[Rfam]
RNA sequence: UCUGUUGCGAGGGGGAGUCUGGAGGAAGCUGGAGGGCAAUGCUUGGCCCGAGGUACACGAACCUGAUUUGAGGCUGUGUGGGCCGGAUGAGUCUGCCACACAAGACGAGGUCCGAAGCCGCCAAGGGCUUAUGCAGGUAAACUUGGGCAGGCACAGGAGCGGAAAGAUGACAUC
Numbered sequence: 001u002c003u004g005u006u007g008c009g010a011g012g013g014g015g016a017g018u019c020u021g022g023a024g025g026a027a028g029c030u031g032g033a034g035g036g037c038a039a040u041g042c043u044u045g046g047c048c049c050g051a052g053g054u055a056c057a058c059g060a061a062c063c064u065g066a067u068u069u070g071a072g073g074c075u076g077u078g079u080g081g082g083c084c085g086g087a088u089g090a091g092u093c094u095g096c097c098a099c100a101c102a103a104g105a106c107g108a109g110g111u112c113c114g115a116a117g118c119c120g121c122c123a124a125g126g127g128c129u130u131a132u133g134c135a136g137g138u139a140a141a142c143u144u145g146g147g148c149a150g151g152c153a154c155a156g157g158a159g160c161g162g163a164a165a166g167a168u169g170a171c172a173u174c
Stems, first nucleotide, its partner, number of pairs: 001016003005012002028174001030172002040161005046152003050148001062147005067141001073138003077133007085113004091106004
Dot-bracket structure: (((.((....)).)))...........(.((........(((((.(((.(...........((((((.....(((.(((((((.((((..((((........))))...)))).............)))))))..)))..).)))))).)))....))))).........)).)
Group II catalytic intron D1-D4-3: a 174-nucleotide RNA sequence from Paenibacillus oceani. The organism belongs to Paenibacillus, within Bacteria. The literature on the family includes a 2001 paper in Trends Genet by Bonen and Vogel, "The ins and outs of group II introns". A search with the family's covariance model found it, with a score of 88 bits. About the family: Group II introns are found in rRNA, tRNA and mRNA of organelles in fungi, plants and protists, and also in mRNA in bacteria.